A member of the RNA family "Small nucleolar RNA R30/Z108" from Juglans regia, 103 nucleotides long. On this family, see Marker et al., Curr Biol 2002: "Experimental RNomics. Identification of 140 Candidates for Small Non-Messenger RNAs in the Plant Arabidopsis thaliana". Clan: SNORD100 clan. Taxonomically the source falls in Juglans (Eukaryota, Streptophytina, Gunneridae, Juglandaceae). Rfam's curators write: snoR30 is a C/D box small nucleolar RNA which acts as a methylation guide for 18S ribosomal RNA in plants.

[Rfam]
RNA sequence: UAAGGUUACGAUGAGGAUUCUUAGCUCCCUCUUCUGAAGUGUAAGUUUGAAGAGAGAUGGCUGGCAGAAUCGAACCUAUGACUUUAUCGCCACCACUGAGUAA
Numbered sequence: 001u002a003a004g005g006u007u008a009c010g011a012u013g014a015g016g017a018u019u020c021u022u023a024g025c026u027c028c029c030u031c032u033u034c035u036g037a038a039g040u041g042u043a044a045g046u047u048u049g050a051a052g053a054g055a056g057a058u059g060g061c062u063g064g065c066a067g068a069a070u071c072g073a074a075c076c077u078a079u080g081a082c083u084u085u086a087u088c089g090c091c092a093c094c095a096c097u098g099a100g101u102a103a
Stems, first nucleotide, its partner, number of pairs: 006103004